[Rfam]
RNA sequence: CGCGCGGCAGGACGGAAAGACCCCGGGACCUUUACUAUAGCUUGGUAUUGGCAUAUUGUCUGGUUUGUGUAGGAUAGGCGGGAGCCUGGGAAGCCCGGACGCUAGUUCGGGUGGAGGUGUUGGUGAAAUACCGCUCUGAUCAAAUGAUGUGUCUCACCCGCGGCCCUGAUCGGGUCGGGGGACAGUGCCUGGUGGGUAGUUUAACUGGGGCGGUUGCCUCCUAAAUGGUAACGGAGGCGCCCAAUGGUGCCCUCGGGCCGGUUGGAAACCGGUCGGUGAGUGUAAGCGUAGAAGGGUGCUUGACUGUGAGACCGACGGGUCGAGCAGGUGCGAAAGCAGGGGCUAGUGAUCCGGCACCGACGUACGGAUGUGGUGUCGCUCAACGGAUAAAAGGUACCCCGGGGAUAACAGGCUGAUCUUCCCCAAGAGUCCAUAUCGACGGGAUGGUUUGGCACCUCGAUGUCGGCUCGUCGCAUCCUGGGGCUGGAGUUGGUCCCAAGGGUUGGGCUGUUCGCCCAUUAAAGCGGCACGCGAGCUGGGUUUAGAACGUCGUGAGACAGUUCGGUCCCUAUCCGCCGCGCGCGUA
Dot-bracket structure: ((((((((.(((.((......(((((((((((.((((...((.((((..((((((((((.(((((.(.........(((((..(((......((((((((....))))))))...)))............)))))).))))).))))))))))...(((.((((((.....))))))))).....)))).))....))))..((((.....))))((((((...........))))))(.((....((((((((.((((((.......))))))...))((......))....))))))....((((..(((......)))..)))).(((....))).))..........(((((((.((........))))))))).....)......)))))..))))))........(((.(((.((((...((.......))...)))).))..))))..........(((((((((((..((.((((((......))))))...)).(((((.....))))).....)))))..)..)))).).....(((((((....))).))))....))..)))))))))))....
The family of this 586-nucleotide part of an RNA from Glycomyces terrestris is "Bacterial large subunit ribosomal RNA". The base pairs follow the family's consensus structure, which is taken from published work. The match comes from Rfam's covariance-model search (2505 bits).